[Rfam]
RNA sequence: GGCACGUGCACGCGUUGCGGUGCAACGCUCGCCAAGGC
Dot-bracket structure: ....((......((((((...))))))..)).......
Shown here is a 38-nucleotide RNA from Desulfovibrio falkowii, a member of the family "Selenocysteine insertion sequence 4". The family's consensus secondary structure was predicted with PFOLD. It scores 41 bits against the family's covariance model. By type it is a cis-regulatory element.